[Rfam]
RNA sequence: GCAUAUUUCACGUUUGUGCGUGAAUCUGACAAACCUUUUCCAUCAUGUAACUGUUUUUGUUUAUGAUGGGGUGUGGUGUUUUAGAUUCACGCACAAACUCGUAAUAUGUCU
Numbered sequence: 001g002c003a004u005a006u007u008u009c010a011c012g013u014u015u016g017u018g019c020g021u022g023a024a025u026c027u028g029a030c031a032a033a034c035c036u037u038u039u040c041c042a043u044c045a046u047g048u049a050a051c052u053g054u055u056u057u058u059g060u061u062u063a064u065g066a067u068g069g070g071g072u073g074u075g076g077u078g079u080u081u082u083a084g085a086u087u088c089a090c091g092c093a094c095a096a097a098c099u100c101g102u103a104a105u106a107u108g109u110c111u
Base pairs, nucleotide, nucleotide: 001109002108003107005105006104007103012098013097014096015095016094017093018092019091020090021089022088023087024086025085026084028082029081042072044070
Dot-bracket structure: (((.(((....(((((((((((((((.((............(.(.........................).)........)).)))))))))))))))....))).)))..
Shown here is a 111-nucleotide RNA from Anisodus acutangulus, a member of the family "MIR403 microRNA precursor family". Rfam 15.1 lists 215 matches to the family in 108 species. The match comes from Rfam's covariance-model search (80 bits). The family's consensus secondary structure was predicted with WAR. The literature on the family includes a 2009 paper in BMC Genomics by Mica et al., "High throughput approaches reveal splicing of primary microRNA transcripts and tissue specific expression of mature microRNAs in Vitis vinifera".